[Rfam]
RNA sequence: UCAUCCGAGGAGCGUUGCGACAAAGGGGUUUUGAUACUUUGCCAGGCUCGGAUUGUGUUGAACAUACAACGGCGCUCAGUCAUU
Numbered sequence: 001u002c003a004u005c006c007g008a009g010g011a012g013c014g015u016u017g018c019g020a021c022a023a024a025g026g027g028g029u030u031u032u033g034a035u036a037c038u039u040u041g042c043c044a045g046g047c048u049c050g051g052a053u054u055g056u057g058u059u060g061a062a063c064a065u066a067c068a069a070c071g072g073c074g075c076u077c078a079g080u081c082a083u084u
Stems, first nucleotide, its partner, number of pairs: 003053006021041005
RNA: SAH (S-adenosyl-L-homocysteine) riboswitch aptamer